[Rfam]
RNA: Streptococcus sRNA Spd-sr37
RNA sequence: CAAUAACGAUGAUGGUCAAAGCUCAUGGGAAUUGGACGUUUUUGAUGUACAGUUUUCAAGGGAUU
Numbered sequence: 001c002a003a004u005a006a007c008g009a010u011g012a013u014g015g016u017c018a019a020a021g022c023u024c025a026u027g028g029g030a031a032u033u034g035g036a037c038g039u040u041u042u043u044g045a046u047g048u049a050c051a052g053u054u055u056u057c058a059a060g061g062g063a064u065u
Stems, first nucleotide, its partner, number of pairs: 019065002022062003033051002036048003